[Rfam]
RNA sequence: ACAGCAGAUAUGCCUAAUCCCGGGCGCCUCGCCCGGGAGCCGGGGAACCACCGCAUCUGGGGUGAACCACAUCAGUGGAAGGGCUUCCUCCAGCCCGAACCCGUCAGCUAACCCGGCCGGCUGAAGGAGAGGAGAG
Numbered sequence: 001a002c003a004g005c006a007g008a009u010a011u012g013c014c015u016a017a018u019c020c021c022g023g024g025c026g027c028c029u030c031g032c033c034c035g036g037g038a039g040c041c042g043g044g045g046a047a048c049c050a051c052c053g054c055a056u057c058u059g060g061g062g063u064g065a066a067c068c069a070c071a072u073c074a075g076u077g078g079a080a081g082g083g084c085u086u087c088c089u090c091c092a093g094c095c096c097g098a099a100c101c102c103g104u105c106a107g108c109u110a111a112c113c114c115g116g117c118c119g120g121c122u123g124a125a126g127g128a129g130a131g132g133a134g135a136g
Stems, first nucleotide, its partner, number of pairs: 012121003018038009039117006049059002060102003067078004081096004
The family of this 136-nucleotide RNA from Planomonospora parontospora is "c-di-AMP riboswitch aptamer (ydaO/yuaA leader)". Rfam describes the family as follows. This family represents a conserved RNA structure found upstream of the ydaO and yuaA genes in Bacillus subtilis and related genes in other bacteria. The source organism's lineage runs through Bacteria, Actinomycetota, Streptosporangiales, Planomonospora and Planomonospora parontospora. The match comes from Rfam's covariance-model search (84 bits). Gene Ontology terms of the family: cyclic-di-AMP binding and regulation of gene expression.